[Rfam]
RNA: ALIL pseudoknot
Organism: Aeromicrobium sp. PE09-221
RNA sequence: CUCGAUUUUCUUCGCGGGGGAACUCGACCCCCGCAAUCGCUGAUCGUCGCGUUCAUCGACGAGCUGCGGGCCGAGGACCACGCGGUCGAGUCGAUCUGCCGGGUCCUGCGUGAGCAGGGCUGCCAGAUCGCCGCG
Numbered sequence: 001c002u003c004g005a006u007u008u009u010c011u012u013c014g015c016g017g018g019g020g021a022a023c024u025c026g027a028c029c030c031c032c033g034c035a036a037u038c039g040c041u042g043a044u045c046g047u048c049g050c051g052u053u054c055a056u057c058g059a060c061g062a063g064c065u066g067c068g069g070g071c072c073g074a075g076g077a078c079c080a081c082g083c084g085g086u087c088g089a090g091u092c093g094a095u096c097u098g099c100c101g102g103g104u105c106c107u108g109c110g111u112g113a114g115c116a117g118g119g120c121u122g123c124c125a126g127a128u129c130g131c132c133g134c135g
Stems, first nucleotide, its partner, number of pairs: 016032005081135005092130002095127004100122002